The family of this 58-nucleotide RNA from Escherichia coli is "ClpQY promoter". It is one of the family's seed sequences. By type it is a cis-regulatory element. Its family is annotated with mRNA stabilization in the Gene Ontology. The base pairs follow the family's consensus structure. The literature on the family includes a 2009 paper in Open Microbiol J by Lien et al., "Regulation of clpQ(+)Y(+) (hslV(+)U(+)) gene expression in Escherichia coli".

RNA sequence: CCCCGUACUUUUGUACGGGGUUUGUACUCUGUAUUCGUAACCAAGGGGUCAGCUCGUG
Number, nucleotide and partner (000 for none) at each position: 001c020002c019003c018004c017005g016006u015007a014008c013009u000010u000011u000012u000013g008014u007015a006016c005017g004018g003019g002020g001021u000022u000023u000024g000025u000026a000027c000028u000029c000030u000031g000032u000033a000034u000035u000036c000037g000038u000039a000040a000041c000042c000043a000044a000045g000046g000047g000048g000049u000050c000051a000052g000053c000054u000055c000056g000057u000058g000